[Rfam]
RNA sequence: ACGAAUCUUUUUGCGGUCUGGGCUUGCUGUUCAUAAAAAUCCGUGUGGGAAGCCCUUACCCCAAAAAGCAUUUG
Numbered sequence: 001a002c003g004a005a006u007c008u009u010u011u012u013g014c015g016g017u018c019u020g021g022g023c024u025u026g027c028u029g030u031u032c033a034u035a036a037a038a039a040u041c042c043g044u045g046u047g048g049g050a051a052g053c054c055c056u057u058a059c060c061c062c063a064a065a066a067a068g069c070a071u072u073u074g
Stems, first nucleotide, its partner, number of pairs: 007068007015060003020055004025050001027048002
RNA: mir-129 microRNA precursor family
Organism: Esox lucius